[Rfam]
RNA sequence: AUGCGUUCUCAGGGCGGGGUGGAAUUCCCCACCGGCGGUGAUGGCGGGCGGCGCUGCAAGGCGCCUGCACCGCACGAGUGCCGCGAGCGCCUGCACGCGGAUGCGUGCAGGGUCAGCAGACCCGGUGAGAUCCCGGGACCGACGGUCACAGUCCGGAUGCAAGAGACCGCUG
Numbered sequence: 001a002u003g004c005g006u007u008c009u010c011a012g013g014g015c016g017g018g019g020u021g022g023a024a025u026u027c028c029c030c031a032c033c034g035g036c037g038g039u040g041a042u043g044g045c046g047g048g049c050g051g052c053g054c055u056g057c058a059a060g061g062c063g064c065c066u067g068c069a070c071c072g073c074a075c076g077a078g079u080g081c082c083g084c085g086a087g088c089g090c091c092u093g094c095a096c097g098c099g100g101a102u103g104c105g106u107g108c109a110g111g112g113u114c115a116g117c118a119g120a121c122c123c124g125g126u127g128a129g130a131u132c133c134c135g136g137g138a139c140c141g142a143c144g145g146u147c148a149c150a151g152u153c154c155g156g157a158u159g160c161a162a163g164a165g166a167c168c169g170c171u172g
Stems, first nucleotide, its partner, number of pairs: 003170003007166004017029003031152002033141002035084006087117002121137005143155003